Rfam assigns this 31-nucleotide RNA from Cinclus mexicanus to the family "Iron response element II". It is annotated as a cis-regulatory element. A search with the family's covariance model found it, with a score of 34 bits. Rfam 15.1 lists 5,197 matches to the family in 722 species. NCBI's taxonomy places the organism under Eukaryota, Craniata, Amniota, Archosauria, Cinclus. About the family: IRE, TFRC, SLC40A1, SDHB, SLC11A2, CDC42BPA, ACO2, ALAS2_H.SAPIENS, CDC14A, EPAS1, ALAS2, qoxD, Hao1, NDUFS1, transferrin, Aconitate. Rfam links the family to the GO term response to iron ion. A reference for the family is Koeller et al. (1989), "A cytosolic protein binds to structural elements within the iron regulatory region of the transferrin receptor mRNA", Proc Natl Acad Sci U S A.
RNA sequence: UGAACAUCUGCCACAGUGCUGGCAAUGUUUG
Numbered sequence: 001u002g003a004a005c006a007u008c009u010g011c012c013a014c015a016g017u018g019c020u021g022g023c024a025a026u027g028u029u030u031g
Stems, first nucleotide, its partner, number of pairs: 001031007009024005014018001